The family of this 284-nucleotide RNA sequence from Sciurus vulgaris is "Mason-Pfizer monkey virus packaging signal". The base pairs follow the family's consensus structure, which was predicted with PFOLD. This family represents a group of sequences that are related to the Mason-Pfizer monkey virus (MPMV) packaging signal. The packaging signal is located in the 5' UTR and is required for specific RNA encapsidation. The family's RNA type in Rfam is cis-regulatory element. Lineage of the source: Eukaryota > Craniata > Dipnotetrapodomorpha > Euarchontoglires > Sciurus.

RNA sequence: UGGUGCCCAGUGGUGAGGAGUGGAUAUGGAGGAAUUCUCGAGGGAAGAGGCGUCUAAUUGUUCGGCUGAAGAAAAAGAAAAGUGAAAGUCAGUUUAACAAAGAUCGCCACGGGAGCCUGCAGUGCCGCUCUUAAAGGUACAGUAGCACCUAACUAUGGAACAAGAAUUAAGUAAGCAUAAAGUUUUUGUUAAGCAAUUAAAAGAAGCUUUAAAGACACGGGGAGUAAAGGUUAAGAGUAAUGAUCUUUUUAAGUUUUUUGACCGUAUUAAGGACACCUGUCCGU
Number, nucleotide and partner (000 for none) at each position: 001u000002g000003g000004u000005g000006c032007c031008c000009a000010g000011u000012g000013g027014u026015g025016a000017g000018g000019a000020g000021u000022g000023g000024a000025u015026a014027u013028g000029g000030a000031g007032g006033a000034a000035u000036u000037c049038u048039c047040g000041a000042g000043g000044g000045a000046a000047g039048a038049g037050g000051c000052g000053u000054c000055u000056a000057a000058u000059u000060g000061u000062u000063c000064g000065g000066c000067u000068g000069a000070a000071g000072a000073a000074a000075a000076a000077g000078a000079a000080a000081a000082g000083u000084g000085a000086a000087a000088g000089u136090c000091a000092g000093u134094u133095u000096a000097a000098c000099a000100a000101a000102g000103a129104u000105c127106g000107c000108c124109a123110c122111g000112g120113g000114a000115g000116c000117c000118u000119g000120c112121a000122g110123u109124g108125c000126c000127g105128c000129u103130c000131u000132u000133a094134a093135a000136g089137g000138u000139a000140c000141a000142g000143u163144a000145g161146c000147a000148c000149c158150u157151a156152a000153c000154u000155a000156u151157g150158g149159a000160a000161c145162a000163a143164g000165a000166a000167u000168u211169a210170a209171g207172u206173a000174a000175g000176c000177a000178u000179a000180a000181a000182g000183u000184u000185u000186u000187u000188g000189u000190u000191a000192a000193g000194c000195a000196a000197u000198u000199a000200a000201a000202a000203g000204a000205a000206g172207c171208u000209u170210u169211a168212a000213a000214g000215a000216c000217a000218c260219g259220g258221g257222g256223a255224g254225u253226a000227a000228a246229g245230g244231u243232u242233a241234a000235g000236a000237g000238u000239a000240a000241u233242g232243a231244u230245c229246u228247u000248u000249u000250u000251a000252a000253g225254u224255u223256u222257u221258u220259u219260g218261a000262c000263c000264g000265u000266a000267u000268u000269a284270a000271g282272g281273a280274c279275a000276c000277c000278u000279g274280u273281c272282c271283g000284u269